[Rfam]
RNA: poplar-1 RNA
RNA sequence: UAUGAGCCGAGGAGCCUUGCAGAAACUUCAAGUUGGCGCUAACUCGAAACAGUAGCAAGAGAGCUCGUAUUAUGUGAAAGGACUGGCUGAAGCAUAAUAAAAUACUGAGCCCACUUCGCAGGGGGCAG
Numbered sequence: 001u002a003u004g005a006g007c008c009g010a011g012g013a014g015c016c017u018u019g020c021a022g023a024a025a026c027u028u029c030a031a032g033u034u035g036g037c038g039c040u041a042a043c044u045c046g047a048a049a050c051a052g053u054a055g056c057a058a059g060a061g062a063g064c065u066c067g068u069a070u071u072a073u074g075u076g077a078a079a080g081g082a083c084u085g086g087c088u089g090a091a092g093c094a095u096a097a098u099a100a101a102a103u104a105c106u107g108a109g110c111c112c113a114c115u116u117c118g119c120a121g122g123g124g125g126c127a128g
Base pairs, nucleotide, nucleotide: 012066013065014064015063018057019056020055031044032043033042034041035040068099069098071096072095073094074093075092109126110125111124112123